[Rfam]
Background: The record is a 142-nucleotide RNA sequence from Drosophila kikkawai, which matches "Small nucleolar RNA psi28S-1192" in Rfam. A search with the family's covariance model found it, with a score of 122 bits. Gene Ontology terms of the family: nucleolus and RNA processing. The family has 15 seed sequences and 81 matches in Rfam 15.1. Rfam classes the family as an H/ACA-box small nucleolar RNA. The base pairs follow the family's consensus structure, which was predicted with ILM.
RNA sequence: UUAGGGUCCAAUCUAAUUCUGCCUGAUGUUCUAUUCAUGUAGUCUCGCUUUUGGACUAGAACAUAGCUUACAUCUUUUAUUAUCCUUGUGCUAGCUAUUAUCCUUCCAAAGCAAAGCACACGAGAAACGUAAAAGAACAUCA
Numbered sequence: 001u002u003a004g005g006g007u008c009c010a011a012u013c014u015a016a017u018u019c020u021g022c023c024u025g026a027u028g029u030u031c032u033a034u035u036c037a038u039g040u041a042g043u044c045u046c047g048c049u050u051u052u053g054g055a056c057u058a059g060a061a062c063a064u065a066g067c068u069u070a071c072a073u074c075u076u077u078u079a080u081u082a083u084c085c086u087u088g089u090g091c092u093a094g095c096u097a098u099u100a101u102c103c104u105u106c107c108a109a110a111g112c113a114a115a116g117c118a119c120a121c122g123a124g125a126a127a128c129g130u131a132a133a134a135g136a137a138c139a140u141c142a
Stems, first nucleotide, its partner, number of pairs: 005057006019042004024037003027033002073136008085124006